[Rfam]
Overview: Rfam assigns this 177-nucleotide sequence from Actinacidiphila oryziradicis to the family "M-box riboswitch aptamer (ykoK leader)". Rfam describes the family as follows. M-box riboswitch, also know as ykoK leader is described as a metaloregulatory RNA that sense divalent metals and function as a genetic control element of genes related to divalent metal transport in bacteria. It was first reported upstream of the B.subtilis ykoK gene and genes with related functions in other bacteria. The match comes from Rfam's covariance-model search (78 bits). Rfam 15.1 lists 1,095 matches to the family in 932 species.

RNA sequence: CGCGGCCCUGGUCAGGGACGGCCGCUUCUGCGCGGACACAGGCCACUGACCUCAAACGUCGAGAGACGCCCCAGGUCAGGACAGCUCACCUCGGCAUAAGGGGUGAGCCCAAAUUCCCUCCCGGGCCCCGGCUGGGAAUACGCCGCGCAGUUCUGAAGUUCGACGAGAGAGGCGCUC
Numbered sequence: 001c002g003c004g005g006c007c008c009u010g011g012u013c014a015g016g017g018a019c020g021g022c023c024g025c026u027u028c029u030g031c032g033c034g035g036a037c038a039c040a041g042g043c044c045a046c047u048g049a050c051c052u053c054a055a056a057c058g059u060c061g062a063g064a065g066a067c068g069c070c071c072c073a074g075g076u077c078a079g080g081a082c083a084g085c086u087c088a089c090c091u092c093g094g095c096a097u098a099a100g101g102g103g104u105g106a107g108c109c110c111a112a113a114u115u116c117c118c119u120c121c122c123g124g125g126c127c128c129c130g131g132c133u134g135g136g137a138a139u140a141c142g143c144c145g146c147g148c149a150g151u152u153c154u155g156a157a158g159u160u161c162g163a164c165g166a167g168a169g170a171g172g173c174g175c176u177c
Base pairs, nucleotide, nucleotide: 005173006172007171009169011164012163017160018159019158024153028150029149030148031147032146033145034144035143042117045114048077049076050075051074052073057068058067059066060065084108085107086106087105090102091101092100119137120136121135122134123133124132